[Rfam]
RNA: Small nucleolar RNA snoR77
RNA sequence: AGGCAGCCCCUUUGUCCGAUCUCAAUGGCAAUGGAGGUGUUGCGUUGCUCGGAGAUAGAAAUCUUUUGGUCUUCAGAUCGGCUGAGUGGGGAGGCCCGCCUCCCCUCGCUGAGGCUGGUCUAGUAAGUCUCUGAAAGUGCUCU
Numbered sequence: 001a002g003g004c005a006g007c008c009c010c011u012u013u014g015u016c017c018g019a020u021c022u023c024a025a026u027g028g029c030a031a032u033g034g035a036g037g038u039g040u041u042g043c044g045u046u047g048c049u050c051g052g053a054g055a056u057a058g059a060a061a062u063c064u065u066u067u068g069g070u071c072u073u074c075a076g077a078u079c080g081g082c083u084g085a086g087u088g089g090g091g092a093g094g095c096c097c098g099c100c101u102c103c104c105c106u107c108g109c110u111g112a113g114g115c116u117g118g119u120c121u122a123g124u125a126a127g128u129c130u131c132u133g134a135a136a137g138u139g140c141u142c143u
Stems, first nucleotide, its partner, number of pairs: 002041004007037002009034002012031005063137003068128001070126001075121005081115003086107001088105006